[Rfam]
RNA sequence: CGAUCGAACUGUAAAUAUGCGUGGUCCGGUUGGUUUUUUUGCAAGCAUAUUGGAGAAAACACAAUGUCAUUAAGUGCUGAACAAAAAGCUCAAGUUGUUGCUGAUCAUCAACGUGGUCAA
Numbered sequence: 001c002g003a004u005c006g007a008a009c010u011g012u013a014a015a016u017a018u019g020c021g022u023g024g025u026c027c028g029g030u031u032g033g034u035u036u037u038u039u040u041g042c043a044a045g046c047a048u049a050u051u052g053g054a055g056a057a058a059a060c061a062c063a064a065u066g067u068c069a070u071u072a073a074g075u076g077c078u079g080a081a082c083a084a085a086a087a088g089c090u091c092a093a094g095u096u097g098u099u100g101c102u103g104a105u106c107a108u109c110a111a112c113g114u115g116g117u118c119a120a
Base pairs, nucleotide, nucleotide: 008025009024010023011022012021050073051072052071053070055068
This 120-nucleotide RNA from Ketobacter alkanivorans belongs to the Rfam family "Ribosomal S15 leader". On this family, see Benard et al., Biochimie 1996: "Pseudoknot and translational control in the expression of the S15 ribosomal protein". Clan: Ribosomal Protein S15 Leader clan. Rfam's curators write: The E. coli Ribosomal S15 gene 5' UTR can form two alternative structures. The base pairs follow the family's consensus structure, which is taken from published work.